[Rfam]
RNA: RAGATH-18 RNA
RNA sequence: CCUAUUGAGUGUCAUAUCAAAUGAUAGUAGAUGUGAGAUUAUCUCAUAUUGAGGUCAGACACGAUGAUGUAGGAA
Numbered sequence: 001c002c003u004a005u006u007g008a009g010u011g012u013c014a015u016a017u018c019a020a021a022u023g024a025u026a027g028u029a030g031a032u033g034u035g036a037g038a039u040u041a042u043c044u045c046a047u048a049u050u051g052a053g054g055u056c057a058g059a060c061a062c063g064a065u066g067a068u069g070u071a072g073g074a075a
Base pairs, nucleotide, nucleotide: 001073002072003071004070005069009062010061011060012059013058022057023056024055030050031049032048035045036044